[Rfam]
RNA sequence: CCAUGGACCUGGGGGAGCUUGGGCAACCAGGCUGAGAGGGUCCCUACGGCGGGACCGACCCCUGGAACCUGAUCCGGGUAAUGCCGGCGGAGGGAAGGUCCGCUGUGCGCCG
Numbered sequence: 001c002c003a004u005g006g007a008c009c010u011g012g013g014g015g016a017g018c019u020u021g022g023g024c025a026a027c028c029a030g031g032c033u034g035a036g037a038g039g040g041u042c043c044c045u046a047c048g049g050c051g052g053g054a055c056c057g058a059c060c061c062c063u064g065g066a067a068c069c070u071g072a073u074c075c076g077g078g079u080a081a082u083g084c085c086g087g088c089g090g091a092g093g094g095a096a097g098g099u100c101c102g103c104u105g106u107g108c109g110c111c112g
Base pairs, nucleotide, nucleotide: 006100007099008098009097010096011062012061013060014059017032018031019030020029021028039056040055041054042053043052068093069092070091074087075086076085077084

TPP riboswitch aptamer (THI element): a 112-nucleotide RNA sequence from bacterium HR11. Rfam's curators write: Vitamin B(1) in its active form thiamin pyrophosphate (TPP) is an essential coenzyme that is synthesised by coupling of pyrimidine and thiazole moieties in bacteria.